[Rfam]
RNA sequence: GGUCGCGGCGUGUCAAUCGGACACGACGGAGAUGGUGAACGUAGCGAUUUUUCCGAUUUCUCGCUACGGGCAACGAAACGCCAGGCGAGCGCUCAACCUGUCCGCCGC
Dot-bracket structure: .....((((.((((.....)))).(((((....((((..(((((((...............)))))))(((........))).......))))....))))).)))).